[Rfam]
RNA sequence: CGCUCAUCCCGAGGGGCACCAGGGAUACGGCCCGAUGACGCCCCGGCAACCAGCACGCACGUGCCAGGUGCCACUUCCGUCCCGCGCCGACGCCCGGCGUGGGGAAGAUGAGGA
Numbered sequence: 001c002g003c004u005c006a007u008c009c010c011g012a013g014g015g016g017c018a019c020c021a022g023g024g025a026u027a028c029g030g031c032c033c034g035a036u037g038a039c040g041c042c043c044c045g046g047c048a049a050c051c052a053g054c055a056c057g058c059a060c061g062u063g064c065c066a067g068g069u070g071c072c073a074c075u076u077c078c079g080u081c082c083c084g085c086g087c088c089g090a091c092g093c094c095c096g097g098c099g100u101g102g103g104g105a106a107g108a109u110g111a112g113g114a
Stems, first nucleotide, its partner, number of pairs: 003112006013044005022033003027080004045072004050068002053064004076106001081103009
A member of the RNA family "SAM riboswitch aptamer (S box leader)" from a Frankiales bacterium, 114 nucleotides long. Its family is annotated with regulation of gene expression in the Gene Ontology. A search with the family's covariance model found it, with a score of 60 bits. The SAM riboswitch is found upstream of a number of genes which code for proteins involved in methionine or cysteine biosynthesis in Gram-positive bacteria.